[Rfam]
The family of this 108-nucleotide RNA sequence from Ornithobacterium rhinotracheale is "Bacteroidales small SRP".
For this family Rfam cites "A high-resolution transcriptome map identifies small RNA regulation of metabolism in the gut microbe Bacteroides thetaiotaomicron" (Ryan et al., Nat Commun, 2020).
The organism belongs to Ornithobacterium rhinotracheale, within Bacteria.
RNA sequence: AGUCCUAAGGCAAGUCCUACACAACCAGCUCCUAUUGAACUCCCCCAGGACGGGAACGUAGCAAGGGUAAAUAGUCGUAGCGGUGUGAUGUAGUAAGCUUGCCUUUUU
Numbered sequence: 001a002g003u004c005c006u007a008a009g010g011c012a013a014g015u016c017c018u019a020c021a022c023a024a025c026c027a028g029c030u031c032c033u034a035u036u037g038a039a040c041u042c043c044c045c046c047a048g049g050a051c052g053g054g055a056a057c058g059u060a061g062c063a064a065g066g067g068u069a070a071a072u073a074g075u076c077g078u079a080g081c082g083g084u085g086u087g088a089u090g091u092a093g094u095a096a097g098c099u100u101g102c103c104u105u106u107u108u
Base pairs, nucleotide, nucleotide: 008104009103010102011101012100013099014098015097017093018092019091020090021089022087023086024084025083